Shown here is an 86-nucleotide RNA sequence from Branchiostoma floridae, a member of the family "mir-2060 microRNA precursor family".
Taxonomically the source falls in Branchiostoma (Eukaryota, Metazoa, Bilateria, Chordata).
Rfam 15.1 lists 3,696 matches to the family in 4 species.
[Rfam]
RNA sequence: GUGUGUGGAUGAUGUUCAGCACCAUGGACAGAUGUGUAAACCUGUGUGUGACUGGUGUUCAGCACCAAUGACAGUUUUUUUUUACA
Number, nucleotide and partner (000 for none) at each position: 001g072002u071003g000004u000005g000006u000007g000008g000009a000010u067011g066012a000013u064014g063015u062016u061017c000018a059019g058020c057021a056022c055023c054024a053025u000026g047027g000028a045029c044030a043031g042032a000033u040034g000035u000036g000037u000038a000039a000040a033041c000042c031043u030044g029045u028046g000047u026048g000049u000050g000051a000052c000053u024054g023055g022056u021057g020058u019059u018060c000061a016062g015063c014064a013065c000066c011067a010068a000069u000070g000071a002072c001073a000074g000075u000076u000077u000078u000079u000080u000081u000082u000083u000084a000085c000086a000
The family's consensus secondary structure was predicted with RNAalifold. A search with the family's covariance model found it, with a score of 62 bits.